RNA sequence: UAUAUAUAAUCUGACAGGCAGCAAAUCAAGAAAGAUUUGUGUUGCUGGGCCAUAUAUUGGCAACAGGUGAGCUUAAGCAUCUGUGGGACAGGA
Numbered sequence: 001u002a003u004a005u006a007u008a009a010u011c012u013g014a015c016a017g018g019c020a021g022c023a024a025a026u027c028a029a030g031a032a033a034g035a036u037u038u039g040u041g042u043u044g045c046u047g048g049g050c051c052a053u054a055u056a057u058u059g060g061c062a063a064c065a066g067g068u069g070a071g072c073u074u075a076a077g078c079a080u081c082u083g084u085g086g087g088a089c090a091g092g093a
Stems, first nucleotide, its partner, number of pairs: 010092004015087001017046004021040006049061004063084006
NiCo (Nickel/Cobalt) riboswitch aptamer: a 93-nucleotide RNA from Anaeromicropila herbilytica. It scores 54 bits against the family's covariance model. Rfam links the family to the GO terms metal ion homeostasis and cobalt ion binding. The literature on the family includes a 2015 paper in Mol Cell by Furukawa et al., "Bacterial riboswitches cooperatively bind Ni(2+) or Co(2+) ions and control expression of heavy metal transporters". The family's consensus secondary structure is taken from published work.